[Rfam]
RNA: SAH (S-adenosyl-L-homocysteine) riboswitch aptamer
Nucleotides: 094
Stems, first nucleotide, its partner, number of pairs: 002048007021035005
Number, partner (000 for none) and nucleotide at each position: 001000c002048u003047c004046u005045c006044c007043a008042a009000g010000g011000a012000g013000c014000g015000u016000u017000g018000c019000a020000g021035c022034g023033g024032g025031u026000g027000c028000c029000c030000g031025g032024c033023c034022c035021g036000u037000c038000a039000g040000g041000c042008u043007u044006g045005g046004a047003g048002a049000g050000u051000g052000c053000g054000g055000g056000g057000c058000u059000g060000a061000g062000a063000a064000g065000u066000u067000g068000u069000g070000a071000a072000c073000g074000a075000a076000c077000c078000c079000g080000a081000c082000a083000c084000g085000c086000c087000c088000g089000c090000u091000c092000a093000u094000c